[Rfam]
RNA sequence: CCUAACUUUAUAACCGAGGAUAGGAAUGACAAAACCAUGUAUUUUGAAACUAUCCCAUUAAGAUUCCUGCAUGCGUCAUAAUGGACAGAUUAUGGGGUCUGAAGCUCAGGUAAAGUCGGCAGAACAAAGGCUGAAGCCACUCCUCACGGAAAAGGUAUGCCAAUGGAUAUGCCGGAUGGCUGAAAA
Numbered sequence: 001c002c003u004a005a006c007u008u009u010a011u012a013a014c015c016g017a018g019g020a021u022a023g024g025a026a027u028g029a030c031a032a033a034a035c036c037a038u039g040u041a042u043u044u045u046g047a048a049a050c051u052a053u054c055c056c057a058u059u060a061a062g063a064u065u066c067c068u069g070c071a072u073g074c075g076u077c078a079u080a081a082u083g084g085a086c087a088g089a090u091u092a093u094g095g096g097g098u099c100u101g102a103a104g105c106u107c108a109g110g111u112a113a114a115g116u117c118g119g120c121a122g123a124a125c126a127a128a129g130g131c132u133g134a135a136g137c138c139a140c141u142c143c144u145c146a147c148g149g150a151a152a153a154g155g156u157a158u159g160c161c162a163a164u165g166g167a168u169a170u171g172c173c174g175g176a177u178g179g180c181u182g183a184a185a186a
Base pairs, nucleotide, nucleotide: 018055019054020053021052022051023050031045032044033043034042056178057177058176059175066110067109068108069107070101071100073098074097076095077094078093079092080091081090082089117174118173119172120171121170125165126164129161130160131149132148133147139144

Description
Rfam assigns this 186-nucleotide RNA sequence from Sporosarcina sp. Marseille-Q4063 to the family "Group II catalytic intron D1-D4-5". From the family's description: Group II introns are found in rRNA, tRNA and mRNA of organelles in fungi, plants and protists, and also in mRNA in bacteria. NCBI's taxonomy places the organism under Bacteria, Bacillati, Bacillota, Caryophanaceae, Sporosarcina.